[Rfam]
RNA: Bacterial large subunit ribosomal RNA, nucleotides 573 to 799
Organism: Rheinheimera sp. D18
RNA sequence: GACUUACAUUCUGUAGCAAGGUUAACCGAAUAGGGGAGCCGUAGGGAAACCGAGUCUUAACUGGGCGAAUAGUUGCAGGGUGUAGACCCGAAACCGGGCGAUCUAUCCAUGAGCAGGUUGAAGGUUGGGUAACACUAACUGGAGGACCGAACCCACUAAUGUUGAAAAAUUAGGGGAUGACUUGUGGAUCGGAGUGAAAGGCUAAUCAAGCUCGGAGAUAUCUGGUU
Numbered sequence: 001g002a003c004u005u006a007c008a009u010u011c012u013g014u015a016g017c018a019a020g021g022u023u024a025a026c027c028g029a030a031u032a033g034g035g036g037a038g039c040c041g042u043a044g045g046g047a048a049a050c051c052g053a054g055u056c057u058u059a060a061c062u063g064g065g066c067g068a069a070u071a072g073u074u075g076c077a078g079g080g081u082g083u084a085g086a087c088c089c090g091a092a093a094c095c096g097g098g099c100g101a102u103c104u105a106u107c108c109a110u111g112a113g114c115a116g117g118u119u120g121a122a123g124g125u126u127g128g129g130u131a132a133c134a135c136u137a138a139c140u141g142g143a144g145g146a147c148c149g150a151a152c153c154c155a156c157u158a159a160u161g162u163u164g165a166a167a168a169a170u171u172a173g174g175g176g177a178u179g180a181c182u183u184g185u186g187g188a189u190c191g192g193a194g195u196g197a198a199a200g201g202c203u204a205a206u207c208a209a210g211c212u213c214g215g216a217g218a219u220a221u222c223u224g225g226u227u
Stems, first nucleotide, its partner, number of pairs: 005084013020040004026034002044051002054066004087225002090222001094215006103191001105189009114179001116148004123140006152176003156173005193203003